[Rfam]
RNA: mir-29 microRNA precursor family
Organism: Gopherus evgoodei
Nucleotides: 076
Stems, first nucleotide, its partner, number of pairs: 001076004005071001007070009017060006026053004
Number, partner (000 for none) and nucleotide at each position: 001076a002075u003074u004073g005071g006000a007070c008069c009068a010067a011066c012065u013064u014063c015062u016000a017060u018059u019058g020057g021056u022055g023000a024000g025000a026053g027052a028051g029050a030000a031000a032000a033000g034000c035000u036000u037000u038000c039000g040000a041000a042000a043000g044000c045000u046000u047000g048000u049000c050029u051028c052027u053026c054000u055022c056021a057020c058019c059018a060017a061000c062015a063014g064013a065012a066011g067010u068009u069008g070007g071005u072000g073004c074003a075002a076001u